[Rfam]
RNA sequence: UUAGUGAAAGUUUUUACGGAGUUGGAAUGUUUGUCUACGUUUGCCGACAGGGGCGCUGUUGCAACUGCAUACAAAUUUGAGUUA
Numbered sequence: 001u002u003a004g005u006g007a008a009a010g011u012u013u014u015u016a017c018g019g020a021g022u023u024g025g026a027a028u029g030u031u032u033g034u035c036u037a038c039g040u041u042u043g044c045c046g047a048c049a050g051g052g053g054c055g056c057u058g059u060u061g062c063a064a065c066u067g068c069a070u071a072c073a074a075a076u077u078u079g080a081g082u083u084a
Stems, first nucleotide, its partner, number of pairs: 008078006015071002018068001020066005026060004034052003040046001
A member of the RNA family "mir-2807 microRNA precursor family" from Bombyx mori, 84 nucleotides long.
Rfam links the family to the GO terms miRNA-mediated post-transcriptional gene silencing and RISC complex.
The base pairs follow the family's consensus structure, which was predicted with RNAalifold.
The family has 8 seed sequences and 5,120 matches in Rfam 15.1.
The organism belongs to Bombyx, within Eukaryota.
For this family Rfam cites "MicroRNAs of Bombyx mori identified by Solexa sequencing" (Liu et al., BMC Genomics, 2010).